The record is a 72-nucleotide RNA from Neogobius melanostomus, which matches "mir-129 microRNA precursor family" in Rfam.
[Rfam]
RNA sequence: ACGAAUCUUUUUGCGGUCUGGGCUUGCUGUGCGUAAAUCAAUGUGGGAAGCCCUUACCCCAAAAAGCAUUCG
Numbered sequence: 001a002c003g004a005a006u007c008u009u010u011u012u013g014c015g016g017u018c019u020g021g022g023c024u025u026g027c028u029g030u031g032c033g034u035a036a037a038u039c040a041a042u043g044u045g046g047g048a049a050g051c052c053c054u055u056a057c058c059c060c061a062a063a064a065a066g067c068a069u070u071c072g
Stems, first nucleotide, its partner, number of pairs: 007066007015058003020053004025048001027046002
About this RNA: It scores 82 bits against the family's covariance model. For this family Rfam cites "Identification of tissue-specific microRNAs from mouse" (Lagos-Quintana et al., Curr Biol, 2002). Rfam links the family to the GO terms long-term synaptic potentiation, synapse and gene silencing by miRNA. Lineage of the source: Eukaryota > Deuterostomia > Neopterygii > Euteleosteomorpha > Neogobius. The family's consensus secondary structure was predicted with RNAalifold.